RNA: 7SK RNA
RNA sequence: GGAUGUGACGGUGAUAUGGCUGCAACAUCUAUCACCACAUUGAUCGCCAGGGUUGAUUCGGCUGAUCUGGCUGGCUAGGCGGGUGUCCCCUUCCUCCCUCACUGCUCCAUGUAUGUACCUCCCGAAGCUGGGCAGUCGGUCAAAGAGCACGACCUUCCCCAAACAGGCGGUACCGUUCAUUGGUCAUGGGUAUACGGUAGCUGCGCUACCCUGCUAGAACCUCCAAACAAUCUCAAGGUCCAGCUGCAGGAGAAUGUAGGGUAGUCAAGCUUCCAAGACUGCAGACACAUCCAAGUGAGGUGCUGCACAUGGCAGUCUGCCAUUCUUU
Numbered sequence: 001g002g003a004u005g006u007g008a009c010g011g012u013g014a015u016a017u018g019g020c021u022g023c024a025a026c027a028u029c030u031a032u033c034a035c036c037a038c039a040u041u042g043a044u045c046g047c048c049a050g051g052g053u054u055g056a057u058u059c060g061g062c063u064g065a066u067c068u069g070g071c072u073g074g075c076u077a078g079g080c081g082g083g084u085g086u087c088c089c090c091u092u093c094c095u096c097c098c099u100c101a102c103u104g105c106u107c108c109a110u111g112u113a114u115g116u117a118c119c120u121c122c123c124g125a126a127g128c129u130g131g132g133c134a135g136u137c138g139g140u141c142a143a144a145g146a147g148c149a150c151g152a153c154c155u156u157c158c159c160c161a162a163a164c165a166g167g168c169g170g171u172a173c174c175g176u177u178c179a180u181u182g183g184u185c186a187u188g189g190g191u192a193u194a195c196g197g198u199a200g201c202u203g204c205g206c207u208a209c210c211c212u213g214c215u216a217g218a219a220c221c222u223c224c225a226a227a228c229a230a231u232c233u234c235a236a237g238g239u240c241c242a243g244c245u246g247c248a249g250g251a252g253a254a255u256g257u258a259g260g261g262u263a264g265u266c267a268a269g270c271u272u273c274c275a276a277g278a279c280u281g282c283a284g285a286c287a288c289a290u291c292c293a294a295g296u297g298a299g300g301u302g303c304u305g306c307a308c309a310u311g312g313c314a315g316u317c318u319g320c321c322a323u324u325c326u327u328u
Stems, first nucleotide, its partner, number of pairs: 001108003005102004010097002013093002018090002025086006032079002035074002038069002042067004046062003116172002118169001120167002122139004140162001147158001149156001200270003206264002209261006221252004228246002231243001293328003297323001299321003302316005